Notes: Rfam assigns this 101-nucleotide RNA sequence from Triticum aestivum to the family "Small nucleolar RNA snoR31/Z110/Z27". Its family is annotated with RNA processing and nucleolus in the Gene Ontology. Lineage of the source: Eukaryota > Liliopsida > Triticeae > Triticinae > Triticum. By type it is a C/D-box small nucleolar RNA. The base pairs follow the family's consensus structure, which was predicted with PFOLD. This family contains several related snoRNAs including R31, Z27 and Z110.
[Rfam]
RNA sequence: AGUAUCGUAUGAUGAAACCUUGAAACAAUCUUAGGACACCUUUUGACACAGUGCCUAUUUUUCCUGUGGAUGAGAAGGCAUUUAUAUUCUCUGAUGAUACG
Numbered sequence: 001a002g003u004a005u006c007g008u009a010u011g012a013u014g015a016a017a018c019c020u021u022g023a024a025a026c027a028a029u030c031u032u033a034g035g036a037c038a039c040c041u042u043u044u045g046a047c048a049c050a051g052u053g054c055c056u057a058u059u060u061u062u063c064c065u066g067u068g069g070a071u072g073a074g075a076a077g078g079c080a081u082u083u084a085u086a087u088u089c090u091c092u093g094a095u096g097a098u099a100c101g
Stems, first nucleotide, its partner, number of pairs: 002100006044050002